[Rfam]
This 76-nucleotide sequence from Jaculus jaculus belongs to the Rfam family "mir-320 microRNA precursor family". Lineage of the source: Eukaryota > Craniata > Vertebrata > Theria > Jaculus. Pairs were carried over by alignment from the consensus structure, which was predicted with RNAalifold.
RNA sequence: AAAAAUACAGGCCUUCUCUUCCCAGUUCUUCCCAGAGUGGGGAAAAGCUGGGUUGAAAGGGCGAAAAUGAACAAGG
Numbered sequence: 001a002a003a004a005a006u007a008c009a010g011g012c013c014u015u016c017u018c019u020u021c022c023c024a025g026u027u028c029u030u031c032c033c034a035g036a037g038u039g040g041g042g043a044a045a046a047g048c049u050g051g052g053u054u055g056a057a058a059g060g061g062c063g064a065a066a067a068u069g070a071a072c073a074a075g076g
Stems, first nucleotide, its partner, number of pairs: 014059002017056002021052005029044005
Gene Ontology terms of the family: long-term synaptic potentiation, positive regulation of stem cell proliferation and RISC complex.